[Rfam]
The family of this 53-nucleotide RNA from Ramlibacter monticola is "chrB-b RNA". It scores 49 bits against the family's covariance model.
RNA sequence: CGGGGAAACGAGCAGGCUCCCCGCUUCAAGACGCCGCGGCGUCCAAGUUCUGU
Numbered sequence: 001c002g003g004g005g006a007a008a009c010g011a012g013c014a015g016g017c018u019c020c021c022c023g024c025u026u027c028a029a030g031a032c033g034c035c036g037c038g039g040c041g042u043c044c045a046a047g048u049u050c051u052g053u
Stems, first nucleotide, its partner, number of pairs: 001023006012053005030043005